[Rfam]
RNA sequence: UAUGUAUUGUGUGUGUGUGUCCGUCUUUGUGUGUGUGUGGGUGUGUGUGUGUGUGUACAUCUUUACAAACACACACAUACACACACACACAUACACAUACACACACACACACACACAUAUACACAUACAGACACACACAUAUAUGUGUGUGCCUGUAUGUGUGUGUGUGUGUGUGCACACACACACACACAUAUACACAUACAGACACACACAUAUAU
Number, nucleotide and partner (000 for none) at each position: 001u000002a000003u000004g000005u000006a000007u000008u000009g000010u000011g000012u000013g128014u127015g126016u125017g000018u000019g000020u000021c000022c000023g000024u000025c000026u000027u000028u119029g118030u117031g000032u115033g114034u111035g110036u109037g108038u107039g106040g000041g104042u103043g102044u101045g100046u000047g000048u097049g096050u095051g094052u093053g092054u091055g090056u089057a000058c000059a000060u000061c000062u000063u000064u000065a000066c000067a000068a000069a000070c000071a000072c000073a000074c000075a000076c000077a000078u000079a000080c000081a000082c000083a000084c000085a000086c000087a000088c000089a056090c055091a054092u053093a052094c051095a050096c049097a048098u000099a000100c045101a044102c043103a042104c041105a000106c039107a038108c037109a036110c035111a034112c000113a000114c033115a032116c000117a030118u029119a028120u000121a000122c000123a000124c000125a016126u015127a014128c013129a000130g000131a000132c000133a000134c000135a000136c000137a000138c000139a000140u000141a000142u000143a000144u211145g210146u209147g208148u207149g000150u000151g000152c000153c000154u000155g000156u000157a000158u197159g196160u195161g194162u193163g192164u191165g190166u189167g188168u183169g182170u181171g180172u179173g178174u000175g000176c000177a000178c173179a172180c171181a170182c169183a168184c000185a000186c000187a000188c167189a166190c165191a164192u163193a162194u161195a160196c159197a158198c000199a000200u000201a000202c000203a000204g000205a000206c000207a148208c147209a146210c145211a144212c000213a000214u000215a000216u000217a000218u000
The record is a 218-nucleotide RNA from Penaeus vannamei, which matches "Small nucleolar RNA SNORA23" in Rfam. Rfam describes the family as follows. The members of this family belong to the H/ACA class of snoRNAs which are thought to guide the sites of modification of uridines to pseudouridines. This family includes human snoRNA ACA23 (SNORA23) and mouse snoMBI-1. ACA23 is predicted to guide the pseudouridylation of residue U3737 and U4331 of 28S rRNA. NCBI's taxonomy places the organism under Eukaryota, Protostomia, Altocrustacea, Malacostraca, Penaeus.